[Rfam]
A member of the RNA family "Phenylalanine leader peptide" from Dickeya dadantii, 124 nucleotides long. Pairs were carried over by alignment from the consensus structure, which was predicted with CMfinder. It is annotated as a cis-regulatory leader.
Nucleotides: 124
Stems, first nucleotide, its partner, number of pairs: 015092004020087003024083007032075002035072004056066001058064002097117008
Number, partner (000 for none) and nucleotide at each position: 001000c002000a003000a004000g005000u006000a007000u008000g009000a010000a011000c012000g013000c014000u015092g016091c017090u018089a019000u020087u021086u022085u023000c024083c025082g026081u027080u028079u029078c030077u031000u032075u033074u034000u035072u036071u037070a038069c039000u040000u041000u042000a043000g044000c045000g046000c047000c048000u049000g050000a051000a052000c053000a054000u055000c056066g057000g058064g059063g060000g061000c062000u063059u064058u065000g066056c067000g068000c069038g070037u071036a072035a073000g074033a075032a076000c077030a078029g079028a080027a081026a082025c083024g084000a085022a086021a087020a088000g089018u090017a091016g092015c093000g094000c095000c096000u097117a098116a099115g100114c101113c102112u103111c104110c105000u106000c107000u108000g109000u110104g111103g112102a113101g114100g115099c116098u117097u118000u119000u120000u121000u122000a123000u124000u

For this family Rfam cites "Nucleotide sequence of the leader region of the phenylalanine operon of Escherichia coli" (Zurawski et al., Proc Natl Acad Sci U S A, 1978).